[Rfam]
RNA: mir-1994 microRNA precursor family
Organism: Lottia gigantea
RNA sequence: UCUCAGGGGAAGUCACUCUCGUCUCCAUGCCCCGAUAUCAGCAUGAGACAGUGUGUCCUCCCUUGAGU
Numbered sequence: 001u002c003u004c005a006g007g008g009g010a011a012g013u014c015a016c017u018c019u020c021g022u023c024u025c026c027a028u029g030c031c032c033c034g035a036u037a038u039c040a041g042c043a044u045g046a047g048a049c050a051g052u053g054u055g056u057c058c059u060c061c062c063u064u065g066a067g068u
Stems, first nucleotide, its partner, number of pairs: 003066002007061003012056001014055003018051002021049004027044003